The family of this 106-nucleotide RNA from Firmicutes bacterium CAG:103 is "Purine riboswitch aptamer". A search with the family's covariance model found it, with a score of 45 bits. On this family, see Mandal et al., Cell 2003: "Riboswitches Control Fundamental Biochemical Pathways in Bacillus subtilis and Other Bacteria".
RNA sequence: AAGUGAACACAGUCACUUUCAGGUAUAGGCGGGGAAGUCACAUGGGCCCCGCGUCUCUACCGGGCGGCCCUUGAAUUGCCCGACUACCGGAAUGCAGCACGCACAG
Numbered sequence: 001a002a003g004u005g006a007a008c009a010c011a012g013u014c015a016c017u018u019u020c021a022g023g024u025a026u027a028g029g030c031g032g033g034g035a036a037g038u039c040a041c042a043u044g045g046g047c048c049c050c051g052c053g054u055c056u057c058u059a060c061c062g063g064g065c066g067g068c069c070c071u072u073g074a075a076u077u078g079c080c081c082g083a084c085u086a087c088c089g090g091a092a093u094g095c096a097g098c099a100c101g102c103a104c105a106g
Base pairs, nucleotide, nucleotide: 018092019091020090022088023087024086025085029052030051031050032049033048034047061082062081063080064079065078066077067076